[Rfam]
RNA sequence: UAUAUUUGCGGCUCAUUCCUGAAAAUCAGGUGUGCUACAUAAAAAUUAUUUAAAAAAAUAUUGGAAUG
Numbered sequence: 001u002a003u004a005u006u007u008g009c010g011g012c013u014c015a016u017u018c019c020u021g022a023a024a025a026u027c028a029g030g031u032g033u034g035c036u037a038c039a040u041a042a043a044a045a046u047u048a049u050u051u052a053a054a055a056a057a058a059u060a061u062u063g064g065a066a067u068g
Stems, first nucleotide, its partner, number of pairs: 014034003018030004

This 68-nucleotide RNA sequence belongs to the Rfam family "S15-Flavobacteria ribosomal protein leader". The sequence is in the family's curated seed alignment. A reference for the family is Eckert and Weinberg (2020), "Discovery of 20 novel ribosomal leader candidates in bacteria and archaea", BMC Microbiol. Rfam classes the family as a cis-regulatory leader. Clan: Ribosomal Protein S15 Leader clan.